This 123-nucleotide RNA from Orthohepacivirus hominis belongs to the Rfam family "Hepatitis C virus J7880 RNA". By type it is a cis-regulatory element. Taxonomically the source falls in Orthohepacivirus (Viruses, Flasuviricetes, Amarillovirales, Hepaciviridae). It is one of the family's seed sequences.
[Rfam]
RNA sequence: AUAAAGGCAAAGGCGUCCACAGUGAAGGCGAACCUGCUAUCCGUCGAGGAGGCAUGUGCCCUGACGCCCCCACAUUCGGCCAGAUCAAAAUUUGGCUAUGGGGCGAAGGACGUCCGGAGCCUU
Numbered sequence: 001a002u003a004a005a006g007g008c009a010a011a012g013g014c015g016u017c018c019a020c021a022g023u024g025a026a027g028g029c030g031a032a033c034c035u036g037c038u039a040u041c042c043g044u045c046g047a048g049g050a051g052g053c054a055u056g057u058g059c060c061c062u063g064a065c066g067c068c069c070c071c072a073c074a075u076u077c078g079g080c081c082a083g084a085u086c087a088a089a090a091u092u093u094g095g096c097u098a099u100g101g102g103g104c105g106a107a108g109g110a111c112g113u114c115c116g117g118a119g120c121c122u123u
Base pairs, nucleotide, nucleotide: 006120012114013113014112015111016110017109018108022065023064025062028057029056035050037048038047068103069102070101071100074097076095077094078092079091
Dot-bracket structure: .....(.....(((((((...((.(..((.....(.((........)).).....))....).))..((((..(.((((...........)).)).)..))))....))))))).....)...